[Rfam]
RNA sequence: CGGCUACUGGAAAUGGCACUGGAAGAAUUCACGGGCGUGUUCCAUAGACCCGUGAUCCUCUGGUGUCAUACCUGGUAGACG
Numbered sequence: 001c002g003g004c005u006a007c008u009g010g011a012a013a014u015g016g017c018a019c020u021g022g023a024a025g026a027a028u029u030c031a032c033g034g035g036c037g038u039g040u041u042c043c044a045u046a047g048a049c050c051c052g053u054g055a056u057c058c059u060c061u062g063g064u065g066u067c068a069u070a071c072c073u074g075g076u077a078g079a080c081g
Stems, first nucleotide, its partner, number of pairs: 004078007013069006020062003025057002029055006
RNA: mir-263 microRNA precursor family